The family of this 99-nucleotide RNA sequence from Gadus morhua is "Vault RNA". The family has 73 seed sequences and 2,873 matches in Rfam 15.1. A search with the family's covariance model found it, with a score of 44 bits.
RNA sequence: GCGCUGGUGUAGCUCAGUGGUUACUUCCUACAACAAACCCGAACGGGUUUGCUGUUCAAAGCUUUCGGGAUUGAACCCCGGUCGCCAUCCAGUGUUUUU
Numbered sequence: 001g002c003g004c005u006g007g008u009g010u011a012g013c014u015c016a017g018u019g020g021u022u023a024c025u026u027c028c029u030a031c032a033a034c035a036a037a038c039c040c041g042a043a044c045g046g047g048u049u050u051g052c053u054g055u056u057c058a059a060a061g062c063u064u065u066c067g068g069g070a071u072u073g074a075a076c077c078c079c080g081g082u083c084g085c086c087a088u089c090c091a092g093u094g095u096u097u098u099u
Stems, first nucleotide, its partner, number of pairs: 002094006012083001014081002017079001019077002025075003